[Rfam]
RNA sequence: CACAUCCUGCGGUGUACGUAACUUAUUUAUGUCUAAAACCGAUGUUAGUUAUACGGAAGCUCAAUAUUUAGUGACCAUCAUCAAGCCUUCCUUGUGGAGGAAGAUGUACGGUAACUGUGAGGGCAUCCACCUGCGAGUAGCGGGUUUUUGGACAUUUACGAGGAGCGGCACGUGCGGGGGUCU
Numbered sequence: 001c002a003c004a005u006c007c008u009g010c011g012g013u014g015u016a017c018g019u020a021a022c023u024u025a026u027u028u029a030u031g032u033c034u035a036a037a038a039c040c041g042a043u044g045u046u047a048g049u050u051a052u053a054c055g056g057a058a059g060c061u062c063a064a065u066a067u068u069u070a071g072u073g074a075c076c077a078u079c080a081u082c083a084a085g086c087c088u089u090c091c092u093u094g095u096g097g098a099g100g101a102a103g104a105u106g107u108a109c110g111g112u113a114a115c116u117g118u119g120a121g122g123g124c125a126u127c128c129a130c131c132u133g134c135g136a137g138u139a140g141c142g143g144g145u146u147u148u149u150g151g152a153c154a155u156u157u158a159c160g161a162g163g164a165g166c167g168g169c170a171c172g173u174g175c176g177g178g179g180g181u182c183u
Stems, first nucleotide, its partner, number of pairs: 002181002005179007012171004017167003031153004035148006055128003059124004066118001070116003074112003081104002086100005
Background:
This 183-nucleotide sequence from Bacillus thuringiensis belongs to the Rfam family "6S / SsrS RNA". Rfam's curators write: E. coli 6S RNA was the first non coding RNA to be sequenced, but its function was unknown until recently. It consists of 184 nucleotides that fold into an extended hairpin structure with a large single-stranded internal bulge. The 6S RNA specifically associates with RNA polymerase holoenzyme containing the sigma70 specificity factor. NCBI's taxonomy places the organism under Bacteria, Bacillati, Bacilli, Bacillaceae, [Bacillus thuringiensis] serovar konkukian. The sequence is in the family's curated seed alignment. A reference for the family is Barrick et al. (2005), "6S RNA is a widespread regulator of eubacterial RNA polymerase that resembles an open promoter", RNA.